[Rfam]
RNA sequence: UUACCAGCGAUUCUUUAUUCUCGUAUAUGUGCAGGAAUCGGCCUGCAUGUAUCUAUCCGAUCACCGGAAAUGAUUGGGCUGCGGCAUGAUUCGGACCGGUU
Numbered sequence: 001u002u003a004c005c006a007g008c009g010a011u012u013c014u015u016u017a018u019u020c021u022c023g024u025a026u027a028u029g030u031g032c033a034g035g036a037a038u039c040g041g042c043c044u045g046c047a048u049g050u051a052u053c054u055a056u057c058c059g060a061u062c063a064c065c066g067g068a069a070a071u072g073a074u075u076g077g078g079c080u081g082c083g084g085c086a087u088g089a090u091u092c093g094g095a096c097c098g099g100u101u
Stems, first nucleotide, its partner, number of pairs: 019086001021084005029048007057077007
Notes: Purine riboswitch aptamer: a 101-nucleotide RNA sequence from Paenibacillus uliginis. The base pairs follow the family's consensus structure, which is taken from published work. Lineage of the source: Bacteria > Caryophanales > Paenibacillaceae > Paenibacillus > Paenibacillus uliginis.